[Rfam]
RNA: Plastid-rps12 3UTR RNA
Organism: Amborella trichopoda
RNA sequence: GGUUUCCAUCGGUGCAAAUCGAAUCACCUCGAUGUGAGAUGAAAAGCAAUUCCUCAUCGGUAGCAAACGGGUAUCCAUUAAGUGGGGGAAAUGUUAU
Numbered sequence: 001g002g003u004u005u006c007c008a009u010c011g012g013u014g015c016a017a018a019u020c021g022a023a024u025c026a027c028c029u030c031g032a033u034g035u036g037a038g039a040u041g042a043a044a045a046g047c048a049a050u051u052c053c054u055c056a057u058c059g060g061u062a063g064c065a066a067a068c069g070g071g072u073a074u075c076c077a078u079u080a081a082g083u084g085g086g087g088g089a090a091a092u093g094u095u096a097u
Stems, first nucleotide, its partner, number of pairs: 009023001012020001052087004056078002059075004064070001